[Rfam]
Annotation
Bacterial RNase P class A: a 375-nucleotide RNA sequence from Marinoscillum furvescens. By type it is a ribozyme. The match comes from Rfam's covariance-model search (256 bits).
RNA sequence: CCUGCAAGUCGGCUCAUCGCUUCAGUAGCAAUGCUGGGGAGGAAAGUCCGGGCAGCGCAGAGUACCGCACUUCCUAACGGGAAGGAGCAUGGCUGGGAACAGCUAUGUUACAGCUAGUGCCACAGAAAUAUACCGCCCUGGCCUGCCAGGGUAAGGGUGAAAAGGUGGAGUAAGAGCCCACCGGCUGCAGUGUGAAUUGCAGUGUCCAGGCAAACCUUGCGGGCUGAAAGACCAAAUAGGUCCUGUUUGAGAGUUACUCGCUCGUAUGCAGGAUGGGUAGGUUGAUAGAUGCUGGUGGUGACACCAGUACCAGAUAAAUGGUGAGCAUUUGCCUAAGGGCAAAUACAGAACCCGGCUUACAGACUUGCACUUUUU
Numbered sequence: 001c002c003u004g005c006a007a008g009u010c011g012g013c014u015c016a017u018c019g020c021u022u023c024a025g026u027a028g029c030a031a032u033g034c035u036g037g038g039g040a041g042g043a044a045a046g047u048c049c050g051g052g053c054a055g056c057g058c059a060g061a062g063u064a065c066c067g068c069a070c071u072u073c074c075u076a077a078c079g080g081g082a083a084g085g086a087g088c089a090u091g092g093c094u095g096g097g098a099a100c101a102g103c104u105a106u107g108u109u110a111c112a113g114c115u116a117g118u119g120c121c122a123c124a125g126a127a128a129u130a131u132a133c134c135g136c137c138c139u140g141g142c143c144u145g146c147c148a149g150g151g152u153a154a155g156g157g158u159g160a161a162a163a164g165g166u167g168g169a170g171u172a173a174g175a176g177c178c179c180a181c182c183g184g185c186u187g188c189a190g191u192g193u194g195a196a197u198u199g200c201a202g203u204g205u206c207c208a209g210g211c212a213a214a215c216c217u218u219g220c221g222g223g224c225u226g227a228a229a230g231a232c233c234a235a236a237u238a239g240g241u242c243c244u245g246u247u248u249g250a251g252a253g254u255u256a257c258u259c260g261c262u263c264g265u266a267u268g269c270a271g272g273a274u275g276g277g278u279a280g281g282u283u284g285a286u287a288g289a290u291g292c293u294g295g296u297g298g299u300g301a302c303a304c305c306a307g308u309a310c311c312a313g314a315u316a317a318a319u320g321g322u323g324a325g326c327a328u329u330u331g332c333c334u335a336a337g338g339g340c341a342a343a344u345a346c347a348g349a350a351c352c353c354g355g356c357u358u359a360c361a362g363a364c365u366u367g368c369a370c371u372u373u374u375u
Base pairs, nucleotide, nucleotide: 003369004368005367006366007365008364009363010362011360012326013325014324015323016322017321018320020039021038022037023036024035025034026033027032044358045357046356048355049354050353051352052351053226054225055224056223060259061258062257063256065222066221067220068219069218070084071083072082073081074080085111086109087108088107089106090105091104092103093102094101095100112217113216117215118214119211120210121209133156134155135152136151137150138149139148140147141146164182165181166180167179168178183206184203185202186201187200188199189198190197191196230283231282232281233280240274241273242272243271244270245269251263252262253261254260290309291308292307293306294305295304296303297302